[Rfam]
Shown here is a 119-nucleotide RNA from Parashewanella curva, a member of the family "Ribosomal S15 leader". Rfam's curators write: The E. coli Ribosomal S15 gene 5' UTR can form two alternative structures. One that is a series of three hairpins, The other includes a pseudoknot. NCBI's taxonomy places the organism under Bacteria, Pseudomonadati, Pseudomonadota, Alteromonadales, Parashewanella. Its Rfam clan is "Ribosomal Protein S15 Leader clan". Gene Ontology term of the family: regulation of translation, ncRNA-mediated. Pairs were carried over by alignment from the consensus structure, which is taken from published work.

RNA sequence: CCCUUGGACUGGAUUAGUGAUCGGUUCAAGUUUAUUAAUUGAUUAUUUUUUGGAGAAGUUUCAUGUCACUAAGUGCAGAAGCAAAAGCAAAAAUCGUAGCUGAAUUCGGCCGCGGUGAA
Numbered sequence: 001c002c003c004u005u006g007g008a009c010u011g012g013a014u015u016a017g018u019g020a021u022c023g024g025u026u027c028a029a030g031u032u033u034a035u036u037a038a039u040u041g042a043u044u045a046u047u048u049u050u051u052g053g054a055g056a057a058g059u060u061u062c063a064u065g066u067c068a069c070u071a072a073g074u075g076c077a078g079a080a081g082c083a084a085a086a087g088c089a090a091a092a093a094u095c096g097u098a099g100c101u102g103a104a105u106u107c108g109g110c111c112g113c114g115g116u117g118a119a
Base pairs, nucleotide, nucleotide: 007026008025009024010023011022012021049073050072051071052070053069055067